[Rfam]
RNA sequence: UCUGUCAAGGUAACGGAUGUGCAAAGAAAUAUAUAAGGACAUUUGACAGCAUUAGCACU
Numbered sequence: 001u002c003u004g005u006c007a008a009g010g011u012a013a014c015g016g017a018u019g020u021g022c023a024a025a026g027a028a029a030u031a032u033a034u035a036a037g038g039a040c041a042u043u044u045g046a047c048a049g050c051a052u053u054a055g056c057a058c059u
Stems, first nucleotide, its partner, number of pairs: 002049007
Background
The family of this 59-nucleotide sequence from Pterocles gutturalis is "Bacillus-plasmid RNA". The match comes from Rfam's covariance-model search (32 bits). Lineage of the source: Eukaryota > Opisthokonta > Sauria > Neoaves > Pterocles.